[Rfam]
RNA sequence: CACUGAUGGGCCUGAAUUGUUGCUCUAACCUGUGUUUUAUUUAGGUGAGCAAACUUUCAGGUGUGUUAGUGC
Numbered sequence: 001c002a003c004u005g006a007u008g009g010g011c012c013u014g015a016a017u018u019g020u021u022g023c024u025c026u027a028a029c030c031u032g033u034g035u036u037u038u039a040u041u042u043a044g045g046u047g048a049g050c051a052a053a054c055u056u057u058c059a060g061g062u063g064u065g066u067u068a069g070u071g072c
Stems, first nucleotide, its partner, number of pairs: 002070006010062006020052002023049003029045003